[Rfam]
Shown here is a 72-nucleotide RNA from Chlamydomonas reinhardtii, a member of the family "tRNA". The source organism's lineage runs through Eukaryota, Viridiplantae, core chlorophytes, Chlorophyceae and Chlamydomonas. Rfam's curators put it in the seed alignment.

Nucleotides: 072
Base pairs, nucleotide, nucleotide: 001071002070003069004068005067006066007065010024011023012022026042027041028040029039030038048064049063050062051061052060
Number, partner (000 for none) and nucleotide at each position: 001071u002070g003069g004068g005067g006066c007065a008000u009000a010024g011023c012022c013000a014000a015000g016000u017000g018000g019000u020000a021000a022012g023011g024010c025000a026042u027041u028040g029039g030038a031000c032000u033000u034000u035000g036000a037000c038030u039029c040028c041027a042026a043000g044000a045000u046000g047000c048064a049063u050062g051061g052060g053000u054000u055000c056000g057000a058000a059000u060052c061051c062050u063049a064048u065007u066006g067005c068004c069003c070002c071001a072000g